[Rfam]
RNA sequence: GAAAAUUCUCAGGGCGGGGCGAAAUUCCCCACCGGCGGUAAGGGAAAGCCCAAGCCCGCGAGCGCUCAGCGAUGAGGUCAGCAGAUCAGGUGCUAUUCCUGGGCCGACGGUUACAGUCCGGAUGAAAGAGAAUACGC
Numbered sequence: 001g002a003a004a005a006u007u008c009u010c011a012g013g014g015c016g017g018g019g020c021g022a023a024a025u026u027c028c029c030c031a032c033c034g035g036c037g038g039u040a041a042g043g044g045a046a047a048g049c050c051c052a053a054g055c056c057c058g059c060g061a062g063c064g065c066u067c068a069g070c071g072a073u074g075a076g077g078u079c080a081g082c083a084g085a086u087c088a089g090g091u092g093c094u095a096u097u098c099c100u101g102g103g104c105c106g107a108c109g110g111u112u113a114c115a116g117u118c119c120g121g122a123u124g125a126a127a128g129a130g131a132a133u134a135c136g137c
Stems, first nucleotide, its partner, number of pairs: 005133006017029003031117002033106002035059004054104002062082002086102005108120003